The family of this 157-nucleotide sequence from Alsobacter soli is "6S / SsrS RNA". The family's consensus secondary structure is taken from published work. The match comes from Rfam's covariance-model search (75 bits). Rfam describes the family as follows. E. coli 6S RNA was the first non coding RNA to be sequenced, but its function was unknown until recently. It consists of 184 nucleotides that fold into an extended hairpin structure with a large single-stranded internal bulge. The 6S RNA specifically associates with RNA polymerase holoenzyme containing the sigma70 specificity factor. Rfam classes the family as a non-coding RNA gene.
[Rfam]
RNA sequence: GCGGGGCUGCGGGGUGCGUGAGGACAAUGUAUCCCCGGGGCCUUAUCGAUCCUAACGGGAGCUGUCCCCGCCCUUGUCCGUGGACUUGGGCACACGGCGCCCACCUACGUUGUAGGUUUCCCGGGAUCGAUCGUCCCACGGCCACUGUGGCUCCGCG
Numbered sequence: 001g002c003g004g005g006g007c008u009g010c011g012g013g014g015u016g017c018g019u020g021a022g023g024a025c026a027a028u029g030u031a032u033c034c035c036c037g038g039g040g041c042c043u044u045a046u047c048g049a050u051c052c053u054a055a056c057g058g059g060a061g062c063u064g065u066c067c068c069c070g071c072c073c074u075u076g077u078c079c080g081u082g083g084a085c086u087u088g089g090g091c092a093c094a095c096g097g098c099g100c101c102c103a104c105c106u107a108c109g110u111u112g113u114a115g116g117u118u119u120c121c122c123g124g125g126a127u128c129g130a131u132c133g134u135c136c137c138a139c140g141g142c143c144a145c146u147g148u149g150g151c152u153c154c155g156c157g
Stems, first nucleotide, its partner, number of pairs: 002155010013143003017140003032126004037121003040117003057102003061098005070091004076085001